[Rfam]
RNA: SAM riboswitch aptamer (S box leader)
Organism: Lunatimonas lonarensis
RNA sequence: GAUUUAUACAGAAGAGGUGAGAGACAGGCUCGAUGACCCUCUGGCAACCUGGAAAGACCAAGGUGCCAAUUCCUGCCGGGAGACCAACAUAGGAUCCUGGAAAUAUAAAGU
Numbered sequence: 001g002a003u004u005u006a007u008a009c010a011g012a013a014g015a016g017g018u019g020a021g022a023g024a025c026a027g028g029c030u031c032g033a034u035g036a037c038c039c040u041c042u043g044g045c046a047a048c049c050u051g052g053a054a055a056g057a058c059c060a061a062g063g064u065g066c067c068a069a070u071u072c073c074u075g076c077c078g079g080g081a082g083a084c085c086a087a088c089a090u091a092g093g094a095u096c097c098u099g100g101a102a103a104u105a106u107a108a109a110g111u
Stems, first nucleotide, its partner, number of pairs: 001111001003109006013042005021031003025075004043067004048063002050060003071103001076100006